[Rfam]
RNA sequence: UAUGUUGAUAGAGGUGCACUUUUUAUCAGUAGCCCGAGGGAGAACGCGAAUUUUUCUGUGAAUUCGGGUCGAAAGGAAAAAGUGCCGAAAAAGCGGUUUGUUCGCAGGGCCGUUUUUGGGUGUAUGGCGAACAGCCAUGCAACUGUCACCGUGUGAUUACGCGGUGGAGUGCUAUCUGCAUU
Dot-bracket structure: ......(((((....(((((((((.......(((((((........................))))))).......)))))))))...(((((((((((.......)))))))))))((.((((((((.....)))))))).)).(((((((........)))))))....)))))......

Overview: This 182-nucleotide sequence from Congzhengia minquanensis belongs to the Rfam family "Lysine riboswitch aptamer". From the family's description: Riboswitches are metabolite binding domains within certain messenger RNAs that serve as precision sensors for their corresponding targets. Allosteric rearrangement of mRNA structure is mediated by ligand binding, and this results in modulation of gene expression. This family includes riboswitches that sense lysine in a number of genes involved in lysine metabolism, including lysC. NCBI's taxonomy places the organism under Bacteria, Bacillati, Bacillota, Eubacteriales, Congzhengia. The family's consensus secondary structure is taken from published work.